[Rfam]
RNA sequence: CCCAGCGAUGAAUCGCUGGGCUAUUGUCCAACGACCCGCCGGGUCG
Numbered sequence: 001c002c003c004a005g006c007g008a009u010g011a012a013u014c015g016c017u018g019g020g021c022u023a024u025u026g027u028c029c030a031a032c033g034a035c036c037c038g039c040c041g042g043g044u045c046g
Stems, first nucleotide, its partner, number of pairs: 001020008033045005
The record is a 46-nucleotide RNA, which matches "Acido-Lenti-1 RNA" in Rfam.
Pairs were carried over by alignment from the consensus structure, which is taken from published work.
The sequence is in the family's curated seed alignment.